[Rfam]
RNA sequence: GCUGGCAUAUAUGAUGACUUAGCUUUUUUCCCCGACAGAUCGACUAUGUUGAUCUAACUUUUCUAAGCCAGUUUCUGUCUGAUAUGCCAGC
Number, nucleotide and partner (000 for none) at each position: 001g091002c090003u089004g088005g087006c086007a085008u084009a083010u000011a000012u000013g000014a000015u000016g000017a000018c000019u000020u000021a000022g000023c000024u000025u000026u000027u000028u000029u000030c000031c000032c000033c000034g000035a000036c000037a000038g000039a000040u000041c000042g000043a000044c000045u000046a000047u000048g000049u000050u000051g000052a000053u000054c000055u000056a000057a000058c000059u000060u000061u000062u000063c000064u000065a000066a000067g000068c000069c000070a000071g000072u000073u000074u000075c000076u000077g000078u000079c000080u000081g000082a000083u009084a008085u007086g006087c005088c004089a003090g002091c001

Rfam assigns this 91-nucleotide sequence to the family "Small nucleolar SNORD12/SNORD106". It is one of the family's seed sequences. Its family is annotated with nucleolus and RNA processing in the Gene Ontology. The family's consensus secondary structure was predicted with RNAalifold.